[Rfam]
RNA sequence: GCCAAAUGAUGCUUAAAUAGCUCAAUGAGCACUCAGUGCAAAGAUUACACCCAUCUAUCACCCAAGACUGAUGGCU
Numbered sequence: 001g002c003c004a005a006a007u008g009a010u011g012c013u014u015a016a017a018u019a020g021c022u023c024a025a026u027g028a029g030c031a032c033u034c035a036g037u038g039c040a041a042a043g044a045u046u047a048c049a050c051c052c053a054u055c056u057a058u059c060a061c062c063c064a065a066g067a068c069u070g071a072u073g074g075c076u
Stems, first nucleotide, its partner, number of pairs: 001075004029039004